[Rfam]
RNA sequence: CCUUAGCCCCGAUUGAAGUGAAAAUCCUUUUGUGCCGGGGUUCGGCACAAAAGAUUACAACGGAAAGCGGGACGAUGU
Numbered sequence: 001c002c003u004u005a006g007c008c009c010c011g012a013u014u015g016a017a018g019u020g021a022a023a024a025u026c027c028u029u030u031u032g033u034g035c036c037g038g039g040g041u042u043c044g045g046c047a048c049a050a051a052a053g054a055u056u057a058c059a060a061c062g063g064a065a066a067g068c069g070g071g072a073c074g075a076u077g078u
Stems, first nucleotide, its partner, number of pairs: 009070003013066002018061002023056004029051008
RNA: Flavo-1 RNA